A member of the RNA family "tRNA" from Caldisphaera lagunensis, 74 nucleotides long. Rfam links the family to the GO term triplet codon-amino acid adaptor activity. Taxonomically the source falls in Caldisphaera lagunensis (Archaea, Thermoproteati, Acidilobales, Caldisphaera). About the family: Transfer RNA (tRNA) molecules are approximately 80 nucleotides in length. Their secondary structure includes four short double-helical elements and three loops (D, anti-codon, and T loops). Further hydrogen bonds mediate the characteristic L-shaped molecular structure. tRNAs have two regions of fundamental functional importance: the anti-codon, which is responsible for specific mRNA codon recognition, and the 3' end, to which the tRNAs corresponding amino acid is attached (by aminoacyl-tRNA synthetases). tRNAs cope with the degeneracy of the genetic code in two manners: having more than one tRNA (with a specific anti-codon) for a particular amino acid; and 'wobble' base-pairing, i.e. permitting non-standard base-pairing at the 3rd anti-codon position. Rfam classes the family as a transfer RNA. The family's consensus secondary structure is taken from published work.
RNA sequence: GGGCCCGUAGUCUAGGUGGUUAGGACGCCGCCCUUACACGGCGGAGGUCGCCGGUUCGAGCCCGGCCGGGCCCA
Numbered sequence: 001g002g003g004c005c006c007g008u009a010g011u012c013u014a015g016g017u018g019g020u021u022a023g024g025a026c027g028c029c030g031c032c033c034u035u036a037c038a039c040g041g042c043g044g045a046g047g048u049c050g051c052c053g054g055u056u057c058g059a060g061c062c063c064g065g066c067c068g069g070g071c072c073c074a
Stems, first nucleotide, its partner, number of pairs: 001073007010026004028044005050066005